Notes: Rfam assigns this 70-nucleotide RNA sequence from Bos taurus to the family "Small nucleolar RNA U2-30". The family's RNA type in Rfam is C/D-box small nucleolar RNA. The base pairs follow the family's consensus structure, which is taken from published work. A reference for the family is Tycowski et al. (2004), "Guide RNAs with 5' Caps and Novel Box C/D snoRNA-like Domains for Modification of snRNAs in Metazoa", Curr Biol. Its family is annotated with nucleolus and RNA processing in the Gene Ontology.
[Rfam]
RNA sequence: GAGCAAUGAUGUAAAAGUUUGACUGCAGACCUUUUUAAAUAUGAAAGUUGCUACACUUGAUCUGAGCUCA
Numbered sequence: 001g002a003g004c005a006a007u008g009a010u011g012u013a014a015a016a017g018u019u020u021g022a023c024u025g026c027a028g029a030c031c032u033u034u035u036u037a038a039a040u041a042u043g044a045a046a047g048u049u050g051c052u053a054c055a056c057u058u059g060a061u062c063u064g065a066g067c068u069c070a
Base pairs, nucleotide, nucleotide: 001069002068003067004066013034014033015032017030018029019028